[Rfam]
A member of the RNA family "Small nucleolar RNA psi18S-841/snoR66" from Drosophila simulans, 139 nucleotides long. Rfam's curators write: psi18S-841 is a member of the H/ACA class of snoRNA. This family is responsible for guiding the modification of uridine 841 in Drosophila 18S rRNA to pseudouridine. The source organism's lineage runs through Eukaryota, Eumetazoa, Altocrustacea, Hexapoda and Sophophora.
RNA sequence: AGCAAAUGCACUCUGUGUCACAUUGAACUUAAGUACAUGUGAAGACAAUUUGCUAGCUUGCAAUAUUAAAGAGCUGCGUAUUAUCCAUGUAUUUAACGCCGUAUCAGGGUGAUUACAUUGAAAUCGCAUUUUACACUAU
Numbered sequence: 001a002g003c004a005a006a007u008g009c010a011c012u013c014u015g016u017g018u019c020a021c022a023u024u025g026a027a028c029u030u031a032a033g034u035a036c037a038u039g040u041g042a043a044g045a046c047a048a049u050u051u052g053c054u055a056g057c058u059u060g061c062a063a064u065a066u067u068a069a070a071g072a073g074c075u076g077c078g079u080a081u082u083a084u085c086c087a088u089g090u091a092u093u094u095a096a097c098g099c100c101g102u103a104u105c106a107g108g109g110u111g112a113u114u115a116c117a118u119u120g121a122a123a124u125c126g127c128a129u130u131u132u133a134c135a136c137u138a139u
Stems, first nucleotide, its partner, number of pairs: 002061004007056001011052001014047003018042006025036001067138002072132002077126002084121002087118005093112002097108001
The family's consensus secondary structure was predicted with RNAfold.
The match comes from Rfam's covariance-model search (97 bits).
Its family is annotated with nucleolus and RNA processing in the Gene Ontology.